[Rfam]
RNA sequence: UGCUUACCAAUGAUGUUGAAAUAUAUAAAUGUCUGAACAAUUGAUUUCAAAAUGAUAUCAGUGUUUUCUCUGAGGUAAGCA
Number, nucleotide and partner (000 for none) at each position: 001u000002g080003c079004u078005u077006a076007c075008c074009a000010a000011u000012g000013a000014u000015g000016u000017u000018g000019a000020a000021a000022u000023a000024u000025a000026u000027a000028a000029a000030u000031g000032u000033c000034u000035g000036a000037a000038c000039a000040a000041u000042u000043g000044a000045u000046u000047u000048c000049a000050a000051a000052a000053u000054g000055a000056u000057a000058u000059c000060a000061g000062u000063g000064u000065u000066u000067u000068c000069u000070c000071u000072g000073a000074g008075g007076u006077a005078a004079g003080c002081a000